[Rfam]
RNA sequence: UCGAAGAAUCCGUAAAGCUCAGGAGGGAUAGCGCCAUGGAUGAUAACAAGGGAGCCGUAAAUUAAGACGAAGCUCAAAAUGUUUCAUUCAUCUAAUGCGCUAUCUAUCCUGAGUUUUAUGGUUCCUUCCU
Numbered sequence: 001u002c003g004a005a006g007a008a009u010c011c012g013u014a015a016a017g018c019u020c021a022g023g024a025g026g027g028a029u030a031g032c033g034c035c036a037u038g039g040a041u042g043a044u045a046a047c048a049a050g051g052g053a054g055c056c057g058u059a060a061a062u063u064a065a066g067a068c069g070a071a072g073c074u075c076a077a078a079a080u081g082u083u084u085c086a087u088u089c090a091u092c093u094a095a096u097g098c099g100c101u102a103u104c105u106a107u108c109c110u111g112a113g114u115u116u117u118a119u120g121g122u123u124c125c126u127u128c129c130u
Stems, first nucleotide, its partner, number of pairs: 010121001016115009026105009

Background:
This 130-nucleotide RNA from Cocos nucifera belongs to the Rfam family "MIR390 microRNA precursor family". The literature on the family includes a 2005 paper in Genome Res by Adai et al., "Computational prediction of miRNAs in Arabidopsis thaliana". The match comes from Rfam's covariance-model search (89 bits). The source organism's lineage runs through Eukaryota, Embryophyta, Magnoliopsida, commelinids and Cocos. Its family is annotated with RISC complex and miRNA-mediated post-transcriptional gene silencing in the Gene Ontology.